[Rfam]
RNA sequence: ACUGUACCGAAGGGGGGUCUCGACGAGCGAGGCUGAGAGGCCGGGGCUAGUGCCGGCGACCCUUUGAACCUGAUCCGGGUCAUGCCGGCGAAGGGAUCGGACCGCAACUCCGC
Numbered sequence: 001a002c003u004g005u006a007c008c009g010a011a012g013g014g015g016g017g018u019c020u021c022g023a024c025g026a027g028c029g030a031g032g033c034u035g036a037g038a039g040g041c042c043g044g045g046g047c048u049a050g051u052g053c054c055g056g057c058g059a060c061c062c063u064u065u066g067a068a069c070c071u072g073a074u075c076c077g078g079g080u081c082a083u084g085c086c087g088g089c090g091a092a093g094g095g096a097u098c099g100g101a102c103c104g105c106a107a108c109u110c111c112g113c
Base pairs, nucleotide, nucleotide: 007100008099009098010097011063012062013061014060017033018032019031020030021029040057041056042055043054044053069094070093071092075088076087077086078085